[Rfam]
RNA: mir-9193 microRNA precursor family
Organism: Myotis lucifugus
Nucleotides: 074
Base pairs, nucleotide, nucleotide: 003072004071006069009067011065013063014062016061017060018059019058020057021056022055023054024053025052026051029048031046032045033044034043
Number, partner (000 for none) and nucleotide at each position: 001000a002000g003072u004071g005000c006069g007000c008000c009067c010000a011065g012000g013063g014062g015000g016061g017060u018059c019058c020057c021056u022055c023054a024053g025052c026051c027000c028000a029048g030000a031046u032045u033044g034043c035000a036000a037000g038000a039000g040000g041000g042000c043034g044033c045032a046031g047000g048029c049000c050000a051026g052025g053024c054023u055022g056021a057020g058019g059018g060017a061016c062014c063013c064000a065011c066000c067009g068000g069006u070000g071004c072003a073000u074000g